Shown here is a 133-nucleotide RNA sequence from Gouania willdenowi, a member of the family "U8 small nucleolar RNA". The family has 55 seed sequences and 1,597 matches in Rfam 15.1. A reference for the family is Peculis et al. (2001), "The U8 snoRNA gene family: identification and characterization of distinct, functional U8 genes in Xenopus", Gene. The match comes from Rfam's covariance-model search (81 bits). Rfam classes the family as a C/D-box small nucleolar RNA. Pairs were carried over by alignment from the consensus structure, which is taken from published work.
[Rfam]
RNA sequence: UCUUCAGUAAGGUGCAUCCUUACCUGUUACUCCUAUCAUGGAGUAGUAGAACACGAUGAAAGGGGUUCAAUGAGAAAUGAUUCAUAUUUCCAACUUGAUGGGAACAGCAACACCUUUCAAGAUCCAUUCUGAU
Numbered sequence: 001u002c003u004u005c006a007g008u009a010a011g012g013u014g015c016a017u018c019c020u021u022a023c024c025u026g027u028u029a030c031u032c033c034u035a036u037c038a039u040g041g042a043g044u045a046g047u048a049g050a051a052c053a054c055g056a057u058g059a060a061a062g063g064g065g066u067u068c069a070a071u072g073a074g075a076a077a078u079g080a081u082u083c084a085u086a087u088u089u090c091c092a093a094c095u096u097g098a099u100g101g102g103a104a105c106a107g108c109a110a111c112a113c114c115u116u117u118c119a120a121g122a123u124c125c126a127u128u129c130u131g132a133u
Stems, first nucleotide, its partner, number of pairs: 024049003028045006072090002075087001077085001095121002100116003
Dot-bracket structure: .......................(((.((((((......)))))).)))......................((.(.(.......).).))....((...(((...........)))...))............